[Rfam]
RNA sequence: GUCAGUAUGGCCGAGUGGUUAAGGCGCAGCACUCGAAUAUAAACAUCCGAUAUGCUGUUCAUUCGUGAGCCUAGGUUCGAGUCCUAGUGCUGACG
Numbered sequence: 001g002u003c004a005g006u007a008u009g010g011c012c013g014a015g016u017g018g019u020u021a022a023g024g025c026g027c028a029g030c031a032c033u034c035g036a037a038u039a040u041a042a043a044c045a046u047c048c049g050a051u052a053u054g055c056u057g058u059u060c061a062u063u064c065g066u067g068a069g070c071c072u073a074g075g076u077u078c079g080a081g082u083c084c085u086a087g088u089g090c091u092g093a094c095g
Base pairs, nucleotide, nucleotide: 001094002093003092004091005090006089007088010025011024012023027057028056029055030054031053071087072086073085074084075083
The family of this 95-nucleotide sequence from Penicillium concentricum is "tRNA". It scores 48 bits against the family's covariance model. By type it is a transfer RNA. The organism belongs to Penicillium, within Eukaryota. Clan: tRNA clan. Rfam links the family to the GO term triplet codon-amino acid adaptor activity.